[Rfam]
The family of this 439-nucleotide part of an RNA from Bermanella marisrubri is "Bacterial large subunit ribosomal RNA".
RNA sequence: CUCCUCGAAAUCUAUUUAGGUAGAGCGUCAUGUAUUACCCACGGGGGUAGAGCACUGUUAAGGCUAGGGGGUCAUCCCGACUUACCAACCCUUUGCAAACUCCGAAUACCGUGGAGUACAGCAUGGCAGACACACUGCGGGUGCUAACGUCCGUUGUGGAAAGGGAAACAACCCAGACCGUCAGCUAAGGUCCCAAAGUUAUGGUUAAGUGGGAAACGAUGUGGGAAGGCCCAGACAGCUAGGAGGUUGGCUUAGAAGCAGCCACCCUUUAAAGAAAGCGUAAUAGCUCACUAGUCGAGUCGGCCCGCGCGGAAGAUAUAACGGGGCUCAAACCAUACACCGAAGCUACGGGUUCACCGAAUGGUGAGCGGUAGAGGAGCGUUGUGUAAGCCGUUGAAGGUGAAUUGAGAAGUUUGCUGGAGGUAUCACAAGUGCGAAU
Numbered sequence: 001c002u003c004c005u006c007g008a009a010a011u012c013u014a015u016u017u018a019g020g021u022a023g024a025g026c027g028u029c030a031u032g033u034a035u036u037a038c039c040c041a042c043g044g045g046g047g048u049a050g051a052g053c054a055c056u057g058u059u060a061a062g063g064c065u066a067g068g069g070g071g072u073c074a075u076c077c078c079g080a081c082u083u084a085c086c087a088a089c090c091c092u093u094u095g096c097a098a099a100c101u102c103c104g105a106a107u108a109c110c111g112u113g114g115a116g117u118a119c120a121g122c123a124u125g126g127c128a129g130a131c132a133c134a135c136u137g138c139g140g141g142u143g144c145u146a147a148c149g150u151c152c153g154u155u156g157u158g159g160a161a162a163g164g165g166a167a168a169c170a171a172c173c174c175a176g177a178c179c180g181u182c183a184g185c186u187a188a189g190g191u192c193c194c195a196a197a198g199u200u201a202u203g204g205u206u207a208a209g210u211g212g213g214a215a216a217c218g219a220u221g222u223g224g225g226a227a228g229g230c231c232c233a234g235a236c237a238g239c240u241a242g243g244a245g246g247u248u249g250g251c252u253u254a255g256a257a258g259c260a261g262c263c264a265c266c267c268u269u270u271a272a273a274g275a276a277a278g279c280g281u282a283a284u285a286g287c288u289c290a291c292u293a294g295u296c297g298a299g300u301c302g303g304c305c306c307g308c309g310c311g312g313a314a315g316a317u318a319u320a321a322c323g324g325g326g327c328u329c330a331a332a333c334c335a336u337a338c339a340c341c342g343a344a345g346c347u348a349c350g351g352g353u354u355c356a357c358c359g360a361a362u363g364g365u366g367a368g369c370g371g372u373a374g375a376g377g378a379g380c381g382u383u384g385u386g387u388a389a390g391c392c393g394u395u396g397a398a399g400g401u402g403a404a405u406u407g408a409g410a411a412g413u414u415u416g417c418u419g420g421a422g423g424u425a426u427c428a429c430a431a432g433u434g435c436g437a438a439u
Stems, first nucleotide, its partner, number of pairs: 001379006011024005026129001027127007036120001037117002039114006050103001051101002056097003060093004067086002069083005133158003137154006163174003178351004183347003189341003198338001200337006217311002221308005228301003238295005244268003249263003269273001274289001278287002352369007380434001382431005390424003399418008
The base pairs follow the family's consensus structure, which is taken from published work.